[Rfam]
RNA sequence: UAAUAACAAUAUAAAGGAGUUGAGCGUCAACUCAACCCCUUUGUAGAACCGUUUAAGACGGUGGCUCAUUUUAGUUAUAAAAAAUA
Numbered sequence: 001u002a003a004u005a006a007c008a009a010u011a012u013a014a015a016g017g018a019g020u021u022g023a024g025c026g027u028c029a030a031c032u033c034a035a036c037c038c039c040u041u042u043g044u045a046g047a048a049c050c051g052u053u054u055a056a057g058a059c060g061g062u063g064g065c066u067c068a069u070u071u072u073a074g075u076u077a078u079a080a081a082a083a084a085u086a
Stems, first nucleotide, its partner, number of pairs: 021034004048062006
RNA anti-toxin A: an 86-nucleotide RNA from Facklamia sp. 252. The literature on the family includes a 2010 paper in Nucleic Acids Res by Fozo et al., "Abundance of type I toxin-antitoxin systems in bacteria: searches for new candidates and discovery of novel families". Rfam classes the family as an antitoxin RNA. The family's consensus secondary structure was predicted with RNAalifold. The source organism's lineage runs through Bacteria, Bacillati, Bacilli, Lactobacillales and Facklamia.